[Rfam]
RNA: Manganese Mn2+ riboswitch aptamer (yybP-ykoY)
Organism: Novosphingobium endophyticum
RNA sequence: AUCCCGGUCAUCUGGGGAGUAGCCGGCUGCCUUUCGGGCAGCGCCUGUCGUCAACAUACUUGGCCGAGAGGCCAUGGCGCACAGGAGGACGGGUCACCGUUCGGGCGAGACCAAUGGCGCUCGCAGCACCGCUCGGCCGGGCGGGUUGCUGCCGCGCUGUUGUCCUGCCUGCCGCCCGGCCC
Dot-bracket structure: .........................(((...........))).((((((((((.......(((((....)))))))))).))))).((.((((.................................................................................)))).)).